Source information
Shown here is a 128-nucleotide RNA sequence from Staphylococcus gallinarum, a member of the family "Ribosomal protein L20 leader".

RNA sequence: CGAACCAAGAAGAAGCUCCCGCUUCUCACCUGUAGCGACGCUAAUUGCAGUUGGCAGGUCUAUAUAUACAUGGUUUACCAUGUGUAGAGAAGAGCGGGUAUGUUAUAUACUCGCUCUUUUUGCUUGGG
Numbered sequence: 001c002g003a004a005c006c007a008a009g010a011a012g013a014a015g016c017u018c019c020c021g022c023u024u025c026u027c028a029c030c031u032g033u034a035g036c037g038a039c040g041c042u043a044a045u046u047g048c049a050g051u052u053g054g055c056a057g058g059u060c061u062a063u064a065u066a067u068a069c070a071u072g073g074u075u076u077a078c079c080a081u082g083u084g085u086a087g088a089g090a091a092g093a094g095c096g097g098g099u100a101u102g103u104u105a106u107a108u109a110c111u112c113g114c115u116c117u118u119u120u121u122g123c124u125u126g127g128g
Stems, first nucleotide, its partner, number of pairs: 011026006028059003037052003040048002093115010

The base pairs follow the family's consensus structure, which was predicted with CMfinder. The organism belongs to Staphylococcus, within Bacteria.